Rfam assigns this 74-nucleotide RNA sequence to the family "Small nucleolar RNA SNORD83". It is one of the family's seed sequences.
RNA sequence: GCAAAUGAUGUGUGUUUGAUAUAGGAGCACUGUGUGCAAGGACGACCCUCAUCUAUCACCCAUGACUGAUGGCU
Number, nucleotide and partner (000 for none) at each position: 001g073002c072003a070004a000005a000006u000007g000008a000009u000010g000011u000012g000013u000014g000015u000016u000017u000018g000019a000020u000021a000022u000023a000024g000025g000026a000027g037028c036029a035030c034031u000032g000033u000034g030035u029036g028037c027038a000039a000040g000041g000042a000043c000044g000045a000046c000047c000048c000049u000050c000051a000052u000053c000054u000055a000056u000057c000058a000059c000060c000061c000062a000063u000064g000065a000066c000067u000068g000069a000070u003071g000072g002073c001074u000